Rfam assigns this 217-nucleotide sequence from Drosophila grimshawi to the family "Small nucleolar RNA U3". On this family, see Speckmann et al., Mol Cell Biol 1999: "Nuclear retention elements of U3 small nucleolar RNA". The organism belongs to Hawaiian Drosophila, within Eukaryota. Its family is annotated with nucleolus and RNA processing in the Gene Ontology. Rfam 15.1 lists 19,072 matches to the family in 1,215 species. It is annotated as a C/D-box small nucleolar RNA. The family is grouped with related families in Rfam's "U3 clan". Rfam describes the family as follows. Small nucleolar RNAs (snoRNAs) are involved in the processing and modification of rRNA in the nucleolus.
RNA sequence: AAGACUAUACUUCACAGGAUCAUUUCUGUAGUCAGUCUUCACUUACUUUCACACUAUCUGAAAGCACUUCACACCCGCGUUGAUGAGGUGAAUCGUUUUAUUCGGCAGCGUGAGGUUUUGCGUGAUGCCCUUUGCGGUAUGACUUCGGUUAUCCGUGUUGUGGGCGUGGCGCUUCGAUGAUCGCUCGGUAACACGAAUAGAACGAAUUCUGAGUGGU
Numbered sequence: 001a002a003g004a005c006u007a008u009a010c011u012u013c014a015c016a017g018g019a020u021c022a023u024u025u026c027u028g029u030a031g032u033c034a035g036u037c038u039u040c041a042c043u044u045a046c047u048u049u050c051a052c053a054c055u056a057u058c059u060g061a062a063a064g065c066a067c068u069u070c071a072c073a074c075c076c077g078c079g080u081u082g083a084u085g086a087g088g089u090g091a092a093u094c095g096u097u098u099u100a101u102u103c104g105g106c107a108g109c110g111u112g113a114g115g116u117u118u119u120g121c122g123u124g125a126u127g128c129c130c131u132u133u134g135c136g137g138u139a140u141g142a143c144u145u146c147g148g149u150u151a152u153c154c155g156u157g158u159u160g161u162g163g164g165c166g167u168g169g170c171g172c173u174u175c176g177a178u179g180a181u182c183g184c185u186c187g188g189u190a191a192c193a194c195g196a197a198u199a200g201a202a203c204g205a206a207u208u209c210u211g212a213g214u215g216g217u
Stems, first nucleotide, its partner, number of pairs: 001039005009032003015028005048062004075216004093205012108184003120172004125167004139152004